[Rfam]
RNA sequence: ACUGUAAACUAAGCUAUCGUGGCGCUUAGGCGCCAAGGAAAGUCCGGACAGCAUAGAGCAACGCACCGGUGAAGAGCCGGGUCCUGCAUUUUUGCUGGAACAGAAAGUGCCACAGAAAAUAACCGCCUUGCUGUAAAGUAGGGUAAGGGUGAAAAAGUAGGGUAAGAGCCUACGGGUUAUAGCAGUAAUGUUAUAGCGGGGUAAACCUUUCGUGCUGAAAUGCCACAUAUACCGUCGCCUGAGGGCUGCUCGCUCGAUGACGGAGGGUAGGCAGAUUGAUCCUUGAGCGUAAGUUGAAGGACAGAUAAAUGAUAGCUCCGUUCACUUUUGGUGAAUACGACAAAAUCCGGCUUACAGGUUUACAGUUUUU
Numbered sequence: 001a002c003u004g005u006a007a008a009c010u011a012a013g014c015u016a017u018c019g020u021g022g023c024g025c026u027u028a029g030g031c032g033c034c035a036a037g038g039a040a041a042g043u044c045c046g047g048a049c050a051g052c053a054u055a056g057a058g059c060a061a062c063g064c065a066c067c068g069g070u071g072a073a074g075a076g077c078c079g080g081g082u083c084c085u086g087c088a089u090u091u092u093u094g095c096u097g098g099a100a101c102a103g104a105a106a107g108u109g110c111c112a113c114a115g116a117a118a119a120u121a122a123c124c125g126c127c128u129u130g131c132u133g134u135a136a137a138g139u140a141g142g143g144u145a146a147g148g149g150u151g152a153a154a155a156a157g158u159a160g161g162g163u164a165a166g167a168g169c170c171u172a173c174g175g176g177u178u179a180u181a182g183c184a185g186u187a188a189u190g191u192u193a194u195a196g197c198g199g200g201g202u203a204a205a206c207c208u209u210u211c212g213u214g215c216u217g218a219a220a221u222g223c224c225a226c227a228u229a230u231a232c233c234g235u236c237g238c239c240u241g242a243g244g245g246c247u248g249c250u251c252g253c254u255c256g257a258u259g260a261c262g263g264a265g266g267g268u269a270g271g272c273a274g275a276u277u278g279a280u281c282c283u284u285g286a287g288c289g290u291a292a293g294u295u296g297a298a299g300g301a302c303a304g305a306u307a308a309a310u311g312a313u314a315g316c317u318c319c320g321u322u323c324a325c326u327u328u329u330g331g332u333g334a335a336u337a338c339g340a341c342a343a344a345a346u347c348c349g350g351c352u353u354a355c356a357g358g359u360u361u362a363c364a365g366u367u368u369u370u
Stems, first nucleotide, its partner, number of pairs: 001366010012317007020035006040353003044350005049217004056251004061213003065209001066080005081101001082099003102208002107206002109202003123148002125144008157173005176197009221273004232263005243255004281300004286295003

Rfam assigns this 370-nucleotide RNA from Lacibacter luteus to the family "Bacterial RNase P class A". The source organism's lineage runs through Bacteria, Pseudomonadati, Bacteroidota, Chitinophagaceae and Lacibacter. The family's RNA type in Rfam is ribozyme. The match comes from Rfam's covariance-model search (232 bits). Gene Ontology terms of the family: ribonuclease P activity, tRNA processing and dimeric ribonuclease P complex.